[Rfam]
RNA sequence: UUUCCGUGUCCAACUUUUACUGUCCAUCUAGACUGUCCGUCUUAUAUGAAAAUUUUUUAUAAUUCGUAUUUUCAUCGUUGUUAGAUGAUAAAACAUGAUUAAUAUUUUAUGCGUAACUUGUCUGUUUAAAUUUUUUUUAUAUUUUUUUAAAAUAAGACGGACGGUUAAACACUGGGCACGGAAACC
Dot-bracket structure: ......................(((((.(.(((((((((((((((..........................................................................................................))))))))))))))).)..).))))..........